[Rfam]
RNA sequence: UUGCGUUAGGGAUUGAAGUGGAAAUCCUUUUUGAGGCUUUUUUUGCCUCAAAAAGAUUGUAACGUAAAGCCCGACCCUUG
Numbered sequence: 001u002u003g004c005g006u007u008a009g010g011g012a013u014u015g016a017a018g019u020g021g022a023a024a025u026c027c028u029u030u031u032u033g034a035g036g037c038u039u040u041u042u043u044u045g046c047c048u049c050a051a052a053a054a055g056a057u058u059g060u061a062a063c064g065u066a067a068a069g070c071c072c073g074a075c076c077c078u079u080g
Stems, first nucleotide, its partner, number of pairs: 009072003013068002018063002023058004029053008

Shown here is an 80-nucleotide RNA from Flavobacterium psychrophilum, a member of the family "Flavo-1 RNA". The organism belongs to Flavobacterium psychrophilum, within Bacteria. It is one of the family's seed sequences.